Record summary: The family of this 132-nucleotide sequence from Erinaceus europaeus is "U11 spliceosomal RNA". Pairs were carried over by alignment from the consensus structure, which is taken from published work. Clan: U1 clan. For this family Rfam cites "Additional low-abundance human small nuclear ribonucleoproteins: U11, U12, etc" (Montzka and Steitz, Proc Natl Acad Sci U S A, 1988). It scores 84 bits against the family's covariance model. The family's RNA type in Rfam is spliceosomal small nuclear RNA. NCBI's taxonomy places the organism under Eukaryota, Gnathostomata, Tetrapoda, Mammalia, Erinaceus.
RNA sequence: AAAAAGGGCUUCUGUCAUGAGUGACACAUAAAGCAGCUCGUUUUUCUGCACGUGCUGAAUCGACAUCAAAAGAUUUCAGAAGCAUAAUUUUUGUUGUUUGGGCAGCUGGUGAUCGUUGGUCUUGGUGUCAUU
Numbered sequence: 001a002a003a004a005a006g007g008g009c010u011u012c013u014g015u016c017a018u019g020a021g022u023g024a025c026a027c028a029u030a031a032a033g034c035a036g037c038u039c040g041u042u043u044u045u046c047u048g049c050a051c052g053u054g055c056u057g058a059a060u061c062g063a064c065a066u067c068a069a070a071a072g073a074u075u076u077c078a079g080a081a082g083c084a085u086a087a088u089u090u091u092u093g094u095u096g097u098u099u100g101g102g103c104a105g106c107u108g109g110u111g112a113u114c115g116u117u118g119g120u121c122u123u124g125g126u127g128u129c130a131u132u
Base pairs, nucleotide, nucleotide: 008083009082010081011080012079013026014025015024016023017022027054028053029052033049034048035047036046057076058075059074060073061072101129102128103127105126106125107124108123109122111121112120113119114118